[Rfam]
RNA sequence: GCAGUCGGAUGGUCCGUCGCGUACAUCUUAUAAUGUAGGAGGAAAGUCCGGGCAGCAUAGGGCAAAUCGCUUCUUAAUGGGAAGUUGUCUGUGAAGGCAAAUUCGUGUAGAAGAAAAUAACCGCCUUGUAUUUAAUUAGUAUAAGGUAAGGGUGAGAAGGUGAGGUAAGAGCUUACCGGUUGUGGGGUGACUCACAAGCCGUACACAUCGAUUGCUGAAAGUUCAUGUAAACUGGCGUUAGAGGGCGGCCCGUCCGAGUGUAGCGCGUCAGAGGGUAGAACGAUACAAUUUAUUGGUGACAAUAAAUGCGGAUAAAUGACGGACACACAAACUUGUGUACAGAACCCGGCUUAUAGUUCGGCUGCUUUC
Numbered sequence: 001g002c003a004g005u006c007g008g009a010u011g012g013u014c015c016g017u018c019g020c021g022u023a024c025a026u027c028u029u030a031u032a033a034u035g036u037a038g039g040a041g042g043a044a045a046g047u048c049c050g051g052g053c054a055g056c057a058u059a060g061g062g063c064a065a066a067u068c069g070c071u072u073c074u075u076a077a078u079g080g081g082a083a084g085u086u087g088u089c090u091g092u093g094a095a096g097g098c099a100a101a102u103u104c105g106u107g108u109a110g111a112a113g114a115a116a117a118u119a120a121c122c123g124c125c126u127u128g129u130a131u132u133u134a135a136u137u138a139g140u141a142u143a144a145g146g147u148a149a150g151g152g153u154g155a156g157a158a159g160g161u162g163a164g165g166u167a168a169g170a171g172c173u174u175a176c177c178g179g180u181u182g183u184g185g186g187g188u189g190a191c192u193c194a195c196a197a198g199c200c201g202u203a204c205a206c207a208u209c210g211a212u213u214g215c216u217g218a219a220a221g222u223u224c225a226u227g228u229a230a231a232c233u234g235g236c237g238u239u240a241g242a243g244g245g246c247g248g249c250c251c252g253u254c255c256g257a258g259u260g261u262a263g264c265g266c267g268u269c270a271g272a273g274g275g276u277a278g279a280a281c282g283a284u285a286c287a288a289u290u291u292a293u294u295g296g297u298g299a300c301a302a303u304a305a306a307u308g309c310g311g312a313u314a315a316a317u318g319a320c321g322g323a324c325a326c327a328c329a330a331a332c333u334u335g336u337g338u339a340c341a342g343a344a345c346c347c348g349g350c351u352u353a354u355a356g357u358u359c360g361g362c363u364g365c366u367u368u369c
Base pairs, nucleotide, nucleotide: 001365002364003363004362005361006360007359008358009357010356011354012324013323014322015321016320017319018318020039022037023036024035025034026033044352045351046350048349049348050347051346052345053217054216055215056214060251061250062249063248065213066212067211068210069209070084071083072082073081074080085100087098088097089096090095101208102207105206106205107204108203109202121151122150123147124146125145126144127143128142129141130140131139159177160176161175162174163173164172179199180197181196182195183194184193185192186191221281222280223279224278232271233270234269235268236267243255244254245253246252288307289306290305291304292303293302294301295300
The record is a 369-nucleotide RNA from Alloprevotella tannerae, which matches "Bacterial RNase P class A" in Rfam. A search with the family's covariance model found it, with a score of 211 bits. Rfam links the family to the GO terms tRNA processing, dimeric ribonuclease P complex and ribonuclease P activity. By type it is a ribozyme.